About this RNA: The record is a 148-nucleotide RNA sequence from Durio zibethinus, which matches "Small nucleolar RNA snoR145" in Rfam. On this family, see Chen and Wu, Nucleic Acids Res 2009: "Mining small RNA sequencing data: a new approach to identify small nucleolar RNAs in Arabidopsis". It is annotated as an H/ACA-box small nucleolar RNA. Rfam links the family to the GO terms RNA processing and nucleolus.

RNA sequence: UGGUGAAGGUUCCAGCAGUUAGGCGAGAACUCUAAGAAUUGAGACCUCUCUAACAAAUUAACAAAAAUGCCUUCGCAGAUGUUCGCCGAAUCGUAAGAUGCCCAGUUAGUCCCUUUUUUGAGCGUCUGGAACCCUCGGCUACAUUCAC
Numbered sequence: 001u002g003g004u005g006a007a008g009g010u011u012c013c014a015g016c017a018g019u020u021a022g023g024c025g026a027g028a029a030c031u032c033u034a035a036g037a038a039u040u041g042a043g044a045c046c047u048c049u050c051u052a053a054c055a056a057a058u059u060a061a062c063a064a065a066a067a068u069g070c071c072u073u074c075g076c077a078g079a080u081g082u083u084c085g086c087c088g089a090a091u092c093g094u095a096a097g098a099u100g101c102c103c104a105g106u107u108a109g110u111c112c113c114u115u116u117u118u119u120g121a122g123c124g125u126c127u128g129g130a131a132c133c134c135u136c137g138g139c140u141a142c143a144u145u146c147a148c
Base pairs, nucleotide, nucleotide: 003076004075005074006073007072008071009070013018025050026049027048030043031042032041034040035039085139086138087137088136089135097126098125100123101122103120104119105118
Dot-bracket structure: ..(((((((...(....)......(((..(((.((...)))))....)))...................)))))))........(((((.......((.((.(((............))).)).))........))))).........
The family has 19 seed sequences and 286 matches in Rfam 15.1. The match comes from Rfam's covariance-model search (96 bits).